SAH (S-adenosyl-L-homocysteine) riboswitch aptamer: a 79-nucleotide sequence from Sphaerotilus hippei. Lineage of the source: Bacteria > Pseudomonadati > Pseudomonadota > Burkholderiales > Sphaerotilus. The family's consensus secondary structure is taken from published work. A search with the family's covariance model found it, with a score of 61 bits.

RNA sequence: CCUCCCGAGGAGCGUUGCAACGGUCCGGCCCUGGUGCCGGCCGCCAGGCUCGGGACCUCGUCAACGACGCUCACCCGGC
Numbered sequence: 001c002c003u004c005c006c007g008a009g010g011a012g013c014g015u016u017g018c019a020a021c022g023g024u025c026c027g028g029c030c031c032u033g034g035u036g037c038c039g040g041c042c043g044c045c046a047g048g049c050u051c052g053g054g055a056c057c058u059c060g061u062c063a064a065c066g067a068c069g070c071u072c073a074c075c076c077g078g079c
Stems, first nucleotide, its partner, number of pairs: 003055006021043005